[Rfam]
Small Cajal body specific RNA 3: a 137-nucleotide RNA from Chelonoidis abingdonii. The family is grouped with related families in Rfam's "SCARNA3 clan". It is annotated as a small Cajal body RNA. Taxonomically the source falls in Chelonoidis nigra species complex (Eukaryota, Metazoa, Gnathostomata, Testudines). For this family Rfam cites "Cajal body-specific small nuclear RNAs: a novel class of 2'-O-methylation and pseudouridylation guide RNAs" (Darzacq et al., EMBO J, 2002). Rfam 15.1 lists 642 matches to the family in 535 species. Rfam describes the family as follows. scaRNAs are a specific class of small nuclear RNAs which localise to the Cajal bodies and guide the modification of RNA polymerase II transcribed spliceosomal RNAs U1, U2, U4, U5 and U12.
RNA sequence: GCUGGAAGCUGCAGGGUCUGACCAUGUGGACAAAUGAAAUGUCUUUUGUCUGCAUUUGCAGUCUUCCUAGAAUAAAUUGGAGGUCUCUGUCUGGUUUAGGACAGCUAGCUAAACCUGAUCGUUCCCCUCCAUACACU
Numbered sequence: 001g002c003u004g005g006a007a008g009c010u011g012c013a014g015g016g017u018c019u020g021a022c023c024a025u026g027u028g029g030a031c032a033a034a035u036g037a038a039a040u041g042u043c044u045u046u047u048g049u050c051u052g053c054a055u056u057u058g059c060a061g062u063c064u065u066c067c068u069a070g071a072a073u074a075a076a077u078u079g080g081a082g083g084u085c086u087c088u089g090u091c092u093g094g095u096u097u098a099g100g101a102c103a104g105c106u107a108g109c110u111a112a113a114c115c116u117g118a119u120c121g122u123u124c125c126c127c128u129c130c131a132u133a134c135a136c137u
Stems, first nucleotide, its partner, number of pairs: 004067003008062005025054007036045002079130005087121001089119003093115007